Shown here is a 161-nucleotide RNA from Fontibacillus phaseoli, a member of the family "c-di-AMP riboswitch aptamer (ydaO/yuaA leader)". Rfam links the family to the GO terms regulation of gene expression and cyclic-di-AMP binding.
RNA sequence: UUUAUAUAGUGGCCGAAUUUCUACCGAAAACGGGGGAACCGAUAUUUAGGGGUGAAUUUCGUCUGUUUCACGGGUUCCAUACCUUGUGAAAAAGCGAAUAGGGCAGACCGCGCAAGCCCGAAUCCGUCAGCUAACCUCGUAGGCCUUUGCAGCAGGGACCA
Numbered sequence: 001u002u003u004a005u006a007u008a009g010u011g012g013c014c015g016a017a018u019u020u021c022u023a024c025c026g027a028a029a030a031c032g033g034g035g036g037a038a039c040c041g042a043u044a045u046u047u048a049g050g051g052g053u054g055a056a057u058u059u060c061g062u063c064u065g066u067u068u069c070a071c072g073g074g075u076u077c078c079a080u081a082c083c084u085u086g087u088g089a090a091a092a093a094g095c096g097a098a099u100a101g102g103g104c105a106g107a108c109c110g111c112g113c114a115a116g117c118c119c120g121a122a123u124c125c126g127u128c129a130g131c132u133a134a135c136c137u138c139g140u141a142g143g144c145c146u147u148u149g150c151a152g153c154a155g156g157g158a159c160c161a
Stems, first nucleotide, its partner, number of pairs: 011145004018029003030140006040049001050125003058098004101119004